RNA sequence: AGCUUUCUGAAUCCGUGCAGAGAUUUUGUCAGACAUCAACCCAUUAGUGUUGAUCAAACUUCCAAGAUACGCGUU
Number, nucleotide and partner (000 for none) at each position: 001a000002g000003c000004u000005u000006u073007c000008u071009g070010a000011a068012u067013c066014c000015g000016u064017g063018c000019a000020g061021a060022g059023a000024u058025u057026u056027u000028g054029u053030c052031a000032g000033a000034c000035a000036u000037c000038a000039a000040c000041c000042c000043a000044u000045u000046a000047g000048u000049g000050u000051u000052g030053a029054u028055c000056a026057a025058a024059c022060u021061u020062c000063c017064a016065a000066g013067a012068u011069a000070c009071g008072c000073g006074u000075u000
The family of this 75-nucleotide RNA from Schistosoma haematobium is "mir-3492 microRNA precursor family". The source organism's lineage runs through Eukaryota, Metazoa, Spiralia, Schistosomatidae and Schistosoma. The family's consensus secondary structure was predicted with RNAalifold.